[Rfam]
RNA sequence: AGUUGAUAAAGCCACAGCCGUCGCGAGGCGGUGUCGGAAAGCCAAGGGUCUCUCUUGAGAGACAGCCGGGUUGCCUGC
Number, nucleotide and partner (000 for none) at each position: 001a000002g000003u000004u000005g000006a000007u000008a000009a000010a000011g000012c037013c036014a000015c000016a000017g032018c031019c030020g029021u028022c027023g000024c000025g000026a000027g022028g021029c020030g019031g018032u017033g000034u000035c000036g013037g012038a000039a000040a072041g071042c070043c069044a000045a000046g067047g066048g063049u062050c061051u060052c059053u058054c000055u000056u000057g000058a053059g052060a051061g050062a049063c048064a000065g000066c047067c046068g000069g043070g042071u041072u040073g000074c000075c000076u000077g000078c000
This 78-nucleotide RNA from Candidatus Electronema aureum belongs to the Rfam family "c-di-GMP-I riboswitch aptamer". Pairs were carried over by alignment from the consensus structure, which is taken from published work. The organism belongs to Candidatus Electronema, within Bacteria. It scores 54 bits against the family's covariance model. Its family is annotated with cyclic-di-GMP binding in the Gene Ontology.